[Rfam]
RNA sequence: UUGUUAUCAAGAAAGGUGGAGGGAAUAGACCCUUUGAAACCUUAGCAACCCUUUGCCCCAAUAUGCAAUGAAGGUGCUAAAUUCUAUUCGAAAAGGAGAUCAUCA
Number, nucleotide and partner (000 for none) at each position: 001u105002u000003g103004u102005u000006a100007u099008c098009a000010a000011g000012a000013a043014a042015g041016g040017u039018g000019g000020a000021g032022g031023g030024a000025a000026u086027a085028g084029a083030c023031c022032c021033u000034u000035u000036g000037a000038a000039a017040c016041c015042u014043u013044a078045g077046c076047a075048a000049c074050c073051c070052u000053u068054u067055g066056c065057c000058c000059c000060a000061a000062u000063a000064u000065g056066c055067a054068a053069u000070g051071a000072a000073g050074g049075u047076g046077c045078u044079a000080a000081a000082u097083u029084c028085u027086a026087u094088u093089c000090g000091a000092a000093a088094a087095g000096g000097a082098g008099a007100u006101c000102a004103u003104c000105a001
A member of the RNA family "SAM riboswitch aptamer (S box leader)" from Arenibacter nanhaiticus, 105 nucleotides long. The match comes from Rfam's covariance-model search (62 bits). Taxonomically the source falls in Arenibacter (Bacteria, Bacteroidota, Flavobacteriia, Flavobacteriales). Rfam describes the family as follows. The SAM riboswitch is found upstream of a number of genes which code for proteins involved in methionine or cysteine biosynthesis in Gram-positive bacteria.